The family of this 373-nucleotide RNA sequence from methanotrophic endosymbiont of Bathymodiolus azoricus is "Bacterial RNase P class A".

RNA sequence: AGAGUUGGUCAGGCAGUCGCUUUUUUACUUUGCAAUACAAGUAAAACAGAGGAAAGUCCGGGCUCCAAAGGGCAAGGUACCAGAUAACUCCUGGGGGGUGUGAGCCCACGGAAAGUGCAACAGAAAAUAAACCGCCCCUCACCUAGAAUCAUAGGUUGUAGGUGAGGGGUAAGGGUGAAAUGGUGCGGUAAGAGCGCACCGCGCGACUGGUAACAGAAGCGGCAUGGUAAACCCUACCUGGAGCAAGAUCAAAUAGAGGAGCUGACUCGUGGCCCGCGGGGCUCCUGGGUAGAUUGCUUGAGCCAUAAGGUGACUUAUGGCCUAGAUGAAUGACUGUCCACGACAAAACCCGGCUUAUCGACCAACUCUACUU
Numbered sequence: 001a002g003a004g005u006u007g008g009u010c011a012g013g014c015a016g017u018c019g020c021u022u023u024u025u026u027a028c029u030u031u032g033c034a035a036u037a038c039a040a041g042u043a044a045a046a047c048a049g050a051g052g053a054a055a056g057u058c059c060g061g062g063c064u065c066c067a068a069a070g071g072g073c074a075a076g077g078u079a080c081c082a083g084a085u086a087a088c089u090c091c092u093g094g095g096g097g098g099u100g101u102g103a104g105c106c107c108a109c110g111g112a113a114a115g116u117g118c119a120a121c122a123g124a125a126a127a128u129a130a131a132c133c134g135c136c137c138c139u140c141a142c143c144u145a146g147a148a149u150c151a152u153a154g155g156u157u158g159u160a161g162g163u164g165a166g167g168g169g170u171a172a173g174g175g176u177g178a179a180a181u182g183g184u185g186c187g188g189u190a191a192g193a194g195c196g197c198a199c200c201g202c203g204c205g206a207c208u209g210g211u212a213a214c215a216g217a218a219g220c221g222g223c224a225u226g227g228u229a230a231a232c233c234c235u236a237c238c239u240g241g242a243g244c245a246a247g248a249u250c251a252a253a254u255a256g257a258g259g260a261g262c263u264g265a266c267u268c269g270u271g272g273c274c275c276g277c278g279g280g281g282c283u284c285c286u287g288g289g290u291a292g293a294u295u296g297c298u299u300g301a302g303c304c305a306u307a308a309g310g311u312g313a314c315u316u317a318u319g320g321c322c323u324a325g326a327u328g329a330a331u332g333a334c335u336g337u338c339c340a341c342g343a344c345a346a347a348a349c350c351c352g353g354c355u356u357a358u359c360g361a362c363c364a365a366c367u368c369u370a371c372u373u
Stems, first nucleotide, its partner, number of pairs: 001369010011358001012338007020049002023046008054356003058353005063243004070275004075239005080094004095109001096107004110234002115232002117228002132174002134170012182200006201223001202221003207216003247295004257286006266280005302321008